[Rfam]
RNA sequence: CAAAAUUCGUUGGGGUGCCGAAAGGCUGAGAGGUGUUCACGCGCCAACCCAUUGAACCUGAUUCAGGCUAAUACCUGCGUAGGGAACGGAGUUGGCUCGUUU
Numbered sequence: 001c002a003a004a005a006u007u008c009g010u011u012g013g014g015g016u017g018c019c020g021a022a023a024g025g026c027u028g029a030g031a032g033g034u035g036u037u038c039a040c041g042c043g044c045c046a047a048c049c050c051a052u053u054g055a056a057c058c059u060g061a062u063u064c065a066g067g068c069u070a071a072u073a074c075c076u077g078c079g080u081a082g083g084g085a086a087c088g089g090a091g092u093u094g095g096c097u098c099g100u101u102u
Stems, first nucleotide, its partner, number of pairs: 006090005011051004017026003033044004057083004064077004
RNA: TPP riboswitch aptamer (THI element)
Organism: Paramesorhizobium leguminum